[Rfam]
RNA: Small nucleolar RNA Z105
RNA sequence: CGAGCAUAGUGAUGAUAACAACAUUAUUCCGAUUGUUUGAUGAAAGGAUAAAACACCUCCUACUCAUUCUGA
Numbered sequence: 001c002g003a004g005c006a007u008a009g010u011g012a013u014g015a016u017a018a019c020a021a022c023a024u025u026a027u028u029c030c031g032a033u034u035g036u037u038u039g040a041u042g043a044a045a046g047g048a049u050a051a052a053a054c055a056c057c058u059c060c061u062a063c064u065c066a067u068u069c070u071g072a
Base pairs, nucleotide, nucleotide: 006067007066009064027048028047029042